[Rfam]
RNA sequence: AUGCCUUAAACUGAUGAGUAAGGAAAAUAACGACGCGGGGUGACGCCCGUGUCCUCGUUCACAUACGAGAGGAAUUUUUGAACGGGUACAGGUCCGCGCGCUGAGGUGAUUCACCUACUUUGUGAGAUGCCUCGCGAGACUAGGAUCUGCCCC
Numbered sequence: 001a002u003g004c005c006u007u008a009a010a011c012u013g014a015u016g017a018g019u020a021a022g023g024a025a026a027a028u029a030a031c032g033a034c035g036c037g038g039g040g041u042g043a044c045g046c047c048c049g050u051g052u053c054c055u056c057g058u059u060c061a062c063a064u065a066c067g068a069g070a071g072g073a074a075u076u077u078u079u080g081a082a083c084g085g086g087u088a089c090a091g092g093u094c095c096g097c098g099c100g101c102u103g104a105g106g107u108g109a110u111u112c113a114c115c116u117a118c119u120u121u122g123u124g125a126g127a128u129g130c131c132u133c134g135c136g137a138g139a140c141u142a143g144g145a146u147c148u149g150c151c152c153c
Base pairs, nucleotide, nucleotide: 004023005022006021007020008019032053033052034051035050036049037048038047039046054069055068056067057066058065084152085151086150087149090148091147092146093145094144095143099136100135104132105131106130107129108128110126111125112124113123114122
The family of this 153-nucleotide sequence from Myripristis murdjan is "U12 minor spliceosomal RNA". On this family, see Tarn and Steitz, Trends Biochem Sci 1997: "Pre-mRNA splicing: the discovery of a new spliceosome doubles the challenge". Rfam classes the family as a spliceosomal small nuclear RNA. Pairs were carried over by alignment from the consensus structure. The match comes from Rfam's covariance-model search (122 bits). Its family is annotated with U12 snRNP, pre-mRNA branch point binding and mRNA branch site recognition in the Gene Ontology.